[Rfam]
RNA sequence: UUCGCUGUCAUUGGGGAGUAGCCGCCCUUCUUCAUUGAGAGGGGCUUGCGUCAACAGACUUGCCUGGCCAUCACCGGCCACCAUGGCGCAAGCUAAGUCCUGCAACAGGAUUUUGGCGAGACCUUUGACUGCGCACCUCCGUUUUUGGCCGGGGAUGCUGCGCAGUCAUUGGUUUCAUCAACCGGCCGGAGACC
Numbered sequence: 001u002u003c004g005c006u007g008u009c010a011u012u013g014g015g016g017a018g019u020a021g022c023c024g025c026c027c028u029u030c031u032u033c034a035u036u037g038a039g040a041g042g043g044g045c046u047u048g049c050g051u052c053a054a055c056a057g058a059c060u061u062g063c064c065u066g067g068c069c070a071u072c073a074c075c076g077g078c079c080a081c082c083a084u085g086g087c088g089c090a091a092g093c094u095a096a097g098u099c100c101u102g103c104a105a106c107a108g109g110a111u112u113u114u115g116g117c118g119a120g121a122c123c124u125u126u127g128a129c130u131g132c133g134c135a136c137c138u139c140c141g142u143u144u145u146u147g148g149c150c151g152g153g154g155a156u157g158c159u160g161c162g163c164a165g166u167c168a169u170u171g172g173u174u175u176c177a178u179c180a181a182c183c184g185g186c187c188g189g190a191g192a193c194c
Base pairs, nucleotide, nucleotide: 026042027041028040044093045092046091047090048089049088050087051086052085053084061083062082098190099189100188

The family of this 194-nucleotide sequence from Rhodoferax antarcticus is "Manganese Mn2+ riboswitch aptamer (yybP-ykoY)".
The base pairs follow the family's consensus structure.
From the family's description: This RNA was originally discovered in E. coli during a large scale screen and was named SraF. The family was later found to exist upstream of related families of protein genes in many bacteria, including the the yybP and ykoK genes in B. subtilis.
Gene Ontology term of the family: manganese ion binding.
The organism belongs to Rhodoferax antarcticus, within Bacteria.